This 127-nucleotide sequence from Cebus imitator belongs to the Rfam family "Small nucleolar RNA SNORA11". About the family: U107 (SNORA11) is a member of the H/ACA class of snoRNAs that guide the sites of modification of uridines to pseudouridines. This snoRNA was identified by RT-PCR from blood cells and its expression confirmed by Northern blot analysis. There is no predicted target for this guide snRNA. Pairs were carried over by alignment from the consensus structure, which was predicted with RNAalifold. For this family Rfam cites "A novel experimental approach for systematic identification of box H/ACA snoRNAs from eukaryotes" (Gu et al., Nucleic Acids Res, 2005).
RNA sequence: GGGGUGUGCACAGAGCAGGGGGCCUGAAGAAUGGCUCCUCUGAUUACACACACCCAACAGAAAUCAGGGCUCGUAGUGAUGAGGGGCAUAAAAUUGUGGCCUCGCUACAGAUAAAGGCCCUACAUGU
Numbered sequence: 001g002g003g004g005u006g007u008g009c010a011c012a013g014a015g016c017a018g019g020g021g022g023c024c025u026g027a028a029g030a031a032u033g034g035c036u037c038c039u040c041u042g043a044u045u046a047c048a049c050a051c052a053c054c055c056a057a058c059a060g061a062a063a064u065c066a067g068g069g070c071u072c073g074u075a076g077u078g079a080u081g082a083g084g085g086g087c088a089u090a091a092a093a094u095u096g097u098g099g100c101c102u103c104g105c106u107a108c109a110g111a112u113a114a115a116g117g118c119c120c121u122a123c124a125u126g127u
Stems, first nucleotide, its partner, number of pairs: 002055007013045002016042006022035003068120002071117001076112002080109002083102003087098004